Shown here is a 67-nucleotide RNA sequence from Salibacterium qingdaonense, a member of the family "Bacillaceae-1 RNA". By type it is a small RNA.
RNA sequence: AGUAAAGGAGGAUCGGCUAAGUUCGGCACGUCCUGUGCCAACGCCGAUCUGACUCCCAUCGUGUGAG
Numbered sequence: 001a002g003u004a005a006a007g008g009a010g011g012a013u014c015g016g017c018u019a020a021g022u023u024c025g026g027c028a029c030g031u032c033c034u035g036u037g038c039c040a041a042c043g044c045c046g047a048u049c050u051g052a053c054u055c056c057c058a059u060c061g062u063g064u065g066a067g
Base pairs, nucleotide, nucleotide: 011049012048013047014046015045016044017043025039026038027037028036029035053067054066055065057063
Dot-bracket structure: ..........(((((((.......(((((.....)))))...)))))))...(((.(.....).)))